[Rfam]
RNA sequence: GGAGUCUGAAGGCAAGAAUGAAAUAGUACGAGAGGAACUUUCACUCGUCGCCACUGGUUGAUCGGUUGUCUGACAAGGCAAUGCCGAGCGGCUACGCGAUAAGGGAUAAAAGCUGAAAGCAUCUAAGCUUGAAACCCAGCCUAAAAAGAGACUCCGUUGAGGACAUGGAUAAAAGAUCCGUUUGAUAGACUUGGGAUGUAAGCACGAAGGUUACGACGUGUUCAGUCCGCAAGCACUAACGUCCAAACU
Numbered sequence: 001g002g003a004g005u006c007u008g009a010a011g012g013c014a015a016g017a018a019u020g021a022a023a024u025a026g027u028a029c030g031a032g033a034g035g036a037a038c039u040u041u042c043a044c045u046c047g048u049c050g051c052c053a054c055u056g057g058u059u060g061a062u063c064g065g066u067u068g069u070c071u072g073a074c075a076a077g078g079c080a081a082u083g084c085c086g087a088g089c090g091g092c093u094a095c096g097c098g099a100u101a102a103g104g105g106a107u108a109a110a111a112g113c114u115g116a117a118a119g120c121a122u123c124u125a126a127g128c129u130u131g132a133a134a135c136c137c138a139g140c141c142u143a144a145a146a147a148g149a150g151a152c153u154c155c156g157u158u159g160a161g162g163a164c165a166u167g168g169a170u171a172a173a174a175g176a177u178c179c180g181u182u183u184g185a186u187a188g189a190c191u192u193g194g195g196a197u198g199u200a201a202g203c204a205c206g207a208a209g210g211u212u213a214c215g216a217c218g219u220g221u222u223c224a225g226u227c228c229g230c231a232a233g234c235a236c237u238a239a240c241g242u243c244c245a246a247a248c249u
Stems, first nucleotide, its partner, number of pairs: 001155007010142004016046002019043005047100005055094003062087005067080005103137003110130005161244004165181005186238003190233004194228003202221005209214001
RNA: Archaeal large subunit ribosomal RNA, nucleotides 2667 to 2915
Organism: Methanosphaerula palustris